This 58-nucleotide RNA from Nocardia terpenica belongs to the Rfam family "F6 TB sRNA". It scores 54 bits against the family's covariance model.
[Rfam]
RNA sequence: CAGAUCGGCUCCGUGCAGUUGCCAGACCCCCGACCCGGCAACCGCACGGAGCCUUCUC
Numbered sequence: 001c002a003g004a005u006c007g008g009c010u011c012c013g014u015g016c017a018g019u020u021g022c023c024a025g026a027c028c029c030c031c032g033a034c035c036c037g038g039c040a041a042c043c044g045c046a047c048g049g050a051g052c053c054u055u056c057u058c
Stems, first nucleotide, its partner, number of pairs: 002057003008052009018042006
Dot-bracket structure: .(((...(((((((((.((((((.............)))))).)))))))))..))).

Taxonomically the source falls in Nocardia (Bacteria, Bacillati, Actinomycetota, Actinomycetes). The family's consensus secondary structure is taken from published work. Rfam classes the family as a small RNA.